RNA sequence: ACUCAUGGUCGAAGAAUUAAUACUUUGAAGCAUUCACAAGGAUCGUCGCAUCUACUUCCAACGCUUUAGGGAAAGUCUCCCACCGUCUACGCGGAAAUCGCAAUGAGGUCCCACAAAACUCAUUAGGGUGUCUAUUUCAAUGAUUCUAUUCAAUACUGGUGCUAAUUACUUUAUUCGAUUGAUUUGUUUGGUCCCUUUGGGCUCGUUUGGUUCCUGAUGACUUCUGGUUUGGGCCUGUUCGCCAAUGGUACUCCUACGAGUCUAGCGGGCUUCUUGUCUGGCCAAUGGAUGUUCGGGCUUCUUUCUGAACUGGGAAGCUUCGGCUUUUGUUGUCACUAAUCUUCUGUUGCUUAUAUUGGGGUUACAUGCCAACAUUUCGAUGUUAUGGAUUUAGUAAGCUGGUGUCUGGAUGGGUCUUGUUACAAACGCCUUGGUUUCACUAUGCUGCUUGCAGUGUGGGUUGAUUUGUUCGGUACUUGGGGUUUUCUUUUAAACCUAGAUGAUAGUUAUAUUAAUUCUGGUUUGAUGAGAGCCAGAACCCAAUGGAGCUUACUUUGAUCUCAUGAG
Numbered sequence: 001a002c003u004c005a006u007g008g009u010c011g012a013a014g015a016a017u018u019a020a021u022a023c024u025u026u027g028a029a030g031c032a033u034u035c036a037c038a039a040g041g042a043u044c045g046u047c048g049c050a051u052c053u054a055c056u057u058c059c060a061a062c063g064c065u066u067u068a069g070g071g072a073a074a075g076u077c078u079c080c081c082a083c084c085g086u087c088u089a090c091g092c093g094g095a096a097a098u099c100g101c102a103a104u105g106a107g108g109u110c111c112c113a114c115a116a117a118a119c120u121c122a123u124u125a126g127g128g129u130g131u132c133u134a135u136u137u138c139a140a141u142g143a144u145u146c147u148a149u150u151c152a153a154u155a156c157u158g159g160u161g162c163u164a165a166u167u168a169c170u171u172u173a174u175u176c177g178a179u180u181g182a183u184u185u186g187u188u189u190g191g192u193c194c195c196u197u198u199g200g201g202c203u204c205g206u207u208u209g210g211u212u213c214c215u216g217a218u219g220a221c222u223u224c225u226g227g228u229u230u231g232g233g234c235c236u237g238u239u240c241g242c243c244a245a246u247g248g249u250a251c252u253c254c255u256a257c258g259a260g261u262c263u264a265g266c267g268g269g270c271u272u273c274u275u276g277u278c279u280g281g282c283c284a285a286u287g288g289a290u291g292u293u294c295g296g297g298c299u300u301c302u303u304u305c306u307g308a309a310c311u312g313g314g315a316a317g318c319u320u321c322g323g324c325u326u327u328u329g330u331u332g333u334c335a336c337u338a339a340u341c342u343u344c345u346g347u348u349g350c351u352u353a354u355a356u357u358g359g360g361g362u363u364a365c366a367u368g369c370c371a372a373c374a375u376u377u378c379g380a381u382g383u384u385a386u387g388g389a390u391u392u393a394g395u396a397a398g399c400u401g402g403u404g405u406c407u408g409g410a411u412g413g414g415u416c417u418u419g420u421u422a423c424a425a426a427c428g429c430c431u432u433g434g435u436u437u438c439a440c441u442a443u444g445c446u447g448c449u450u451g452c453a454g455u456g457u458g459g460g461u462u463g464a465u466u467u468g469u470u471c472g473g474u475a476c477u478u479g480g481g482g483u484u485u486u487c488u489u490u491u492a493a494a495c496c497u498a499g500a501u502g503a504u505a506g507u508u509a510u511a512u513u514a515a516u517u518c519u520g521g522u523u524u525g526a527u528g529a530g531a532g533c534c535a536g537a538a539c540c541c542a543a544u545g546g547a548g549c550u551u552a553c554u555u556u557g558a559u560c561u562c563a564u565g566a567g
Stems, first nucleotide, its partner, number of pairs: 002567005008559003012556001015517006025069007041052002044048001073551003077548004091101003103123005425484003430480002433477003440472001442470001451461002519535006